[Rfam]
RNA sequence: GGCUGCAACUACGGUAAGCGGUAUCCAGCCGAUGUUUUCAAUACUGCAUUUGAAUACACGUGCACGGAUAACGCUCAUUGUUUUUCGCAUGC
Numbered sequence: 001g002g003c004u005g006c007a008a009c010u011a012c013g014g015u016a017a018g019c020g021g022u023a024u025c026c027a028g029c030c031g032a033u034g035u036u037u038u039c040a041a042u043a044c045u046g047c048a049u050u051u052g053a054a055u056a057c058a059c060g061u062g063c064a065c066g067g068a069u070a071a072c073g074c075u076c077a078u079u080g081u082u083u084u085u086c087g088c089a090u091g092c
Stems, first nucleotide, its partner, number of pairs: 002092002011081005017075004022070005028063002030060002033058003037054005
Dot-bracket structure: .((.......(((((.((((.(((((.((((.(((.(((((........))))).))))).))..))))).)))).))))).........))
Rfam assigns this 92-nucleotide RNA from Caenorhabditis elegans to the family "mir-248 microRNA precursor family". For this family Rfam cites "Repertoire and evolution of miRNA genes in four divergent nematode species" (de Wit et al., Genome Res, 2009). Rfam's curators put it in the seed alignment. Lineage of the source: Eukaryota > Eumetazoa > Protostomia > Rhabditomorpha > Caenorhabditis.